transfer-messenger RNA: a 369-nucleotide RNA sequence from Paraburkholderia diazotrophica.
By type it is a non-coding RNA gene.
The family is grouped with related families in Rfam's "tRNA clan".
Taxonomically the source falls in Paraburkholderia (Bacteria, Pseudomonadati, Pseudomonadota, Burkholderiales).
RNA sequence: GGGGGCGACCUGGUUUCGACAGGGGUUGCGAAGCGGCUAGGGCAUGUCGAGGACCCGUCACCUCGUUAAUCAAUGGGAAAAACGUAACUGCAAACGACGAUACGUUCGCACUGGCAGCCUAAGGCCGCCGUCCUCUGCCUGGCUCACUGACGGGUCAGAGUCGCAAGACCGGUAGCAAUACCGCCAGAGGUCAUAUACGUCAGUUAAGCCUUGGUGGCGUCACGACGCCAAGGUCGAAAAUCUAGUGAAUCGCCGUAGCGCAGCGUGUUCGUCCGCGUCGCUGCGGUUAAAUCAAAAGACAGAACUAAACAUGUAGAACUGGUCGUGGAGGACUUCUGGACGCGGGUUCGAUUCCCGCCGCCUCCACCA
Number, nucleotide and partner (000 for none) at each position: 001g365002g364003g363004g362005g361006c360007g359008a000009c000010c000011u000012g000013g000014u000015u000016u000017c000018g000019a000020c338021a337022g336023g335024g334025g333026u332027u331028g000029c000030g000031a000032a000033g326034c325035g324036g323037c322038u321039a320040g319041g000042g000043c313044a312045u311046g310047u309048c065049g064050a063051g062052g061053a000054c077055c076056c075057g074058u073059c000060a000061c052062c051063u050064c049065g048066u000067u000068a000069a000070u000071c000072a000073a058074u057075g056076g055077g054078a000079a000080a000081a000082a000083c000084g000085u000086a000087a000088c000089u000090g000091c000092a000093a000094a000095c000096g000097a000098c000099g000100a000101u000102a000103c000104g000105u000106u000107c000108g000109c000110a131111c130112u000113g129114g128115c127116a000117g125118c124119c000120u000121a000122a000123g000124g118125c117126c000127g115128c114129c113130g111131u110132c190133c189134u188135c187136u186137g185138c000139c000140u000141g000142g000143c000144u000145c000146a000147c000148u000149g204150a000151c000152g201153g200154g000155u000156c000157a000158g000159a000160g000161u000162c000163g000164c000165a000166a000167g000168a000169c000170c000171g000172g000173u000174a000175g000176c000177a000178a000179u000180a000181c000182c000183g000184c000185c137186a136187g135188a134189g133190g132191u000192c000193a000194u000195a000196u000197a000198c000199g000200u153201c152202a000203g000204u149205u000206a000207a000208g000209c233210c232211u231212u230213g229214g228215u000216g000217g000218c000219g000220u248221c247222a246223c245224g000225a000226c000227g000228c214229c213230a212231a211232g210233g209234u000235c000236g000237a000238a000239a000240a000241u000242c000243u000244a000245g223246u222247g221248a220249a000250u000251c000252g287253c286254c285255g284256u283257a282258g281259c280260g279261c000262a000263g276264c275265g274266u000267g305268u304269u303270c302271g300272u299273c298274c265275g264276c263277g000278u000279c260280g259281c258282u257283g256284c255285g254286g253287u252288u000289a000290a000291a000292u000293c000294a000295a000296a000297a000298g273299a272300c271301a000302g270303a269304a268305c267306u000307a000308a000309a047310c046311a045312u044313g043314u000315a000316g000317a000318a000319c040320u039321g038322g037323u036324c035325g034326u033327g000328g000329a000330g000331g027332a026333c025334u024335u023336c022337u021338g020339g000340a000341c000342g358343c357344g356345g355346g354347u000348u000349c000350g000351a000352u000353u000354c346355c345356c344357g343358c342359c007360g006361c005362c004363u003364c002365c001366a000367c000368c000369a000